[Rfam]
RNA sequence: CCGCGUUCGCGUGACUGGCGCUAGUGAUGGGGAACCAUCGGGGAGCGUGGACAUCAUAAGCCGCGCGCCUGGGCUCCCUUU
Dot-bracket structure: ..(.((((((((..(([[[[[.....((((....))))..))..)))))))).)....((((..]]]]]..))))......
Numbered sequence: 001c002c003g004c005g006u007u008c009g010c011g012u013g014a015c016u017g018g019c020g021c022u023a024g025u026g027a028u029g030g031g032g033a034a035c036c037a038u039c040g041g042g043g044a045g046c047g048u049g050g051a052c053a054u055c056a057u058a059a060g061c062c063g064c065g066c067g068c069c070u071g072g073g074c075u076c077c078c079u080u081u
Stems, first nucleotide, its partner, number of pairs: 003054001005052008015042002017069005027038004059075004
A member of the RNA family "ZMP/ZTP riboswitch aptamer (pfl RNA motif)" from Caulobacter vibrioides, 81 nucleotides long. Lineage of the source: Bacteria > Pseudomonadota > Caulobacterales > Caulobacter > Caulobacter vibrioides. Rfam's curators put it in the seed alignment. Its family is annotated with one-carbon metabolic process and regulation of purine nucleotide biosynthetic process in the Gene Ontology.